[Rfam]
RNA: HTH-XRE RNA
RNA sequence: GAUCAGCAAAGCCGGGGAAUGUGCAGACAUUCAUCGGAACUCCCGGCAAAAGGCUUGCAAUAGCAGGUAU
Numbered sequence: 001g002a003u004c005a006g007c008a009a010a011g012c013c014g015g016g017g018a019a020u021g022u023g024c025a026g027a028c029a030u031u032c033a034u035c036g037g038a039a040c041u042c043c044c045g046g047c048a049a050a051a052g053g054c055u056u057g058c059a060a061u062a063g064c065a066g067g068u069a070u
Stems, first nucleotide, its partner, number of pairs: 011047006017032006